[Rfam]
RNA: Mycobacterium smegmatis small RNA 1
Organism: Mycobacterium sp. NAZ190054
RNA sequence: ACGGAAGCCGGGUGAGGCCAGGGCCGAGCCGGAAGAGAAGGCUCGAUCUCCCGAUCUCGGCUCCCCGGCACGGGUCCCGGAACCCACGCGGAGCACAUACCGCGGAAUAGGUAAAAGUGUUGCGGGCCUGCGUAAUUGCGAAAAUCGGACGGCCACGACAGCCCUUUGGGUGGGGCAGCAGCCGAAGCGAAUCGCAAGGACGCCGAGGCCACCCACGCAACCCACACGGCACGCUUGGUAACCGGAGACCCGUGUUAGCGGGCGGUGAGCCGAUUCGGUCGCAGGACCGAUCGGCGCGCCGCCCGCUUGGCGUU
Numbered sequence: 001a002c003g004g005a006a007g008c009c010g011g012g013u014g015a016g017g018c019c020a021g022g023g024c025c026g027a028g029c030c031g032g033a034a035g036a037g038a039a040g041g042c043u044c045g046a047u048c049u050c051c052c053g054a055u056c057u058c059g060g061c062u063c064c065c066c067g068g069c070a071c072g073g074g075u076c077c078c079g080g081a082a083c084c085c086a087c088g089c090g091g092a093g094c095a096c097a098u099a100c101c102g103c104g105g106a107a108u109a110g111g112u113a114a115a116a117g118u119g120u121u122g123c124g125g126g127c128c129u130g131c132g133u134a135a136u137u138g139c140g141a142a143a144a145u146c147g148g149a150c151g152g153c154c155a156c157g158a159c160a161g162c163c164c165u166u167u168g169g170g171u172g173g174g175g176c177a178g179c180a181g182c183c184g185a186a187g188c189g190a191a192u193c194g195c196a197a198g199g200a201c202g203c204c205g206a207g208g209c210c211a212c213c214c215a216c217g218c219a220a221c222c223c224a225c226a227c228g229g230c231a232c233g234c235u236u237g238g239u240a241a242c243c244g245g246a247g248a249c250c251c252g253u254g255u256u257a258g259c260g261g262g263c264g265g266u267g268a269g270c271c272g273a274u275u276c277g278g279u280c281g282c283a284g285g286a287c288c289g290a291u292c293g294g295c296g297c298g299c300c301g302c303c304c305g306c307u308u309g310g311c312g313u314u
Stems, first nucleotide, its partner, number of pairs: 003065002006062007016052002021049002025045006067256008077245004084238003088234003093230002098113004119221006125210005130203004136197006145190003150184004159178001161176005258306010270294006
Dot-bracket structure: ..((.(((((((...((...((..((((((.........))))))..)).))...))))))).)).((((((((..((((...(((.(((..((...((((........)))).....(((((((((((((((..((((((...(((..((((.....(.(((((......))))).)..))))...))).))))))..))))..))))).....)))))).......)).))).)))...))))...)))))))).((((((((((..((((((.............))))))..))))))))))........